[Rfam]
RNA sequence: CCCCAAUGCUUCCUGUCAGGACACUUUCUACAUUCUUCAAUGGAAGAUCGUCUGUUACGUCAUUGGGAGAUUGAAAUUUCGAGCUUGCUGUUUCGACGUCGUUUUGACUAGGGACUGGCUGGGUCCCGUUUUGGGGCACUGUCGUUAGUUCGAGUUUGUUUCAUUUUGAGUUGAAAUCUACCUCCGCCCGUUCCGGGUGGUUAGGUGGUAGAUUUCUUAGUAAUGAUUCAUACAUCU
Numbered sequence: 001c002c003c004c005a006a007u008g009c010u011u012c013c014u015g016u017c018a019g020g021a022c023a024c025u026u027u028c029u030a031c032a033u034u035c036u037u038c039a040a041u042g043g044a045a046g047a048u049c050g051u052c053u054g055u056u057a058c059g060u061c062a063u064u065g066g067g068a069g070a071u072u073g074a075a076a077u078u079u080c081g082a083g084c085u086u087g088c089u090g091u092u093u094c095g096a097c098g099u100c101g102u103u104u105u106g107a108c109u110a111g112g113g114a115c116u117g118g119c120u121g122g123g124u125c126c127c128g129u130u131u132u133g134g135g136g137c138a139c140u141g142u143c144g145u146u147a148g149u150u151c152g153a154g155u156u157u158g159u160u161u162c163a164u165u166u167u168g169a170g171u172u173g174a175a176a177u178c179u180a181c182c183u184c185c186g187c188c189c190g191u192u193c194c195g196g197g198u199g200g201u202u203a204g205g206u207g208g209u210a211g212a213u214u215u216c217u218u219a220g221u222a223a224u225g226a227u228u229c230a231u232a233c234a235u236c237u
Stems, first nucleotide, its partner, number of pairs: 003066005019053004024046005077154002080152003087119004092114001098108003123137006157230002161226004173216004179210004184200007
RNA: Small nucleolar RNA snR191
Organism: Monosporascus ibericus